[Rfam]
RNA: Tetrahymena snoRNA TtnuHACA8
RNA sequence: GGCAGUUAUGUGUACUCAUUUUGAUCUCUGUGAUUUAUGAGAUUACGGAAAUUGCCAACAAUAAAUUAGAUUAUAUAAAGAAAUGUCUUAUCUUAGUUCAUCUAAUUAGGGCUCUUUGUAUACUCACAUCA
Numbered sequence: 001g002g003c004a005g006u007u008a009u010g011u012g013u014a015c016u017c018a019u020u021u022u023g024a025u026c027u028c029u030g031u032g033a034u035u036u037a038u039g040a041g042a043u044u045a046c047g048g049a050a051a052u053u054g055c056c057a058a059c060a061a062u063a064a065a066u067u068a069g070a071u072u073a074u075a076u077a078a079a080g081a082a083a084u085g086u087c088u089u090a091u092c093u094u095a096g097u098u099c100a101u102c103u104a105a106u107u108a109g110g111g112c113u114c115u116u117u118g119u120a121u122a123c124u125c126a127c128a129u130c131a
Stems, first nucleotide, its partner, number of pairs: 001056007010021001012019002028048008069125002072122010085112004094104003